RNA sequence: UGGGGCACAGUGAGGAACAAUCAGAAAUGUCUUUGAGGGCAGAAGAAGCUCCGUGAGACCAAAGAUUUCAGUUCAAGUCCUUUUCAUUCUGAGUGCCCC
Numbered sequence: 001u002g003g004g005g006c007a008c009a010g011u012g013a014g015g016a017a018c019a020a021u022c023a024g025a026a027a028u029g030u031c032u033u034u035g036a037g038g039g040c041a042g043a044a045g046a047a048g049c050u051c052c053g054u055g056a057g058a059c060c061a062a063a064g065a066u067u068u069c070a071g072u073u074c075a076a077g078u079c080c081u082u083u084u085c086a087u088u089c090u091g092a093g094u095g096c097c098c099c
Stems, first nucleotide, its partner, number of pairs: 004097005010087005038059001040057001
Dot-bracket structure: ...(((((.(((((.......................(.(................).).......................))))).....)))))..
RNA: Small nucleolar RNA Z162